RNA sequence: CUGUUAUCCAAUUCAAGUAAUCCAGGAUAGGCUGUGUGCAUUCGGGUUGGCCUAUUCAUGAUUACUUGCGCUGGGUUUCAG
Numbered sequence: 001c002u003g004u005u006a007u008c009c010a011a012u013u014c015a016a017g018u019a020a021u022c023c024a025g026g027a028u029a030g031g032c033u034g035u036g037u038g039c040a041u042u043c044g045g046g047u048u049g050g051c052c053u054a055u056u057c058a059u060g061a062u063u064a065c066u067u068g069c070g071c072u073g074g075g076u077u078u079c080a081g
Base pairs, nucleotide, nucleotide: 002080003079007075008074009073010072012070014068015067016066017065018064019063020062021061022060025057026056027055028054029053030052031051032050033049
This 81-nucleotide sequence from Nothobranchius furzeri belongs to the Rfam family "mir-26 microRNA precursor family".
The base pairs follow the family's consensus structure, which was predicted with RNAalifold.
For this family Rfam cites "Identification of novel genes coding for small expressed RNAs" (Lagos-Quintana et al., Science, 2001).
Its family is annotated with miRNA-mediated post-transcriptional gene silencing and RISC complex in the Gene Ontology.
Taxonomically the source falls in Nothobranchius (Eukaryota, Deuterostomia, Actinopteri, Aplocheiloidei).
The family has 82 seed sequences and 2,251 matches in Rfam 15.1.
A search with the family's covariance model found it, with a score of 74 bits.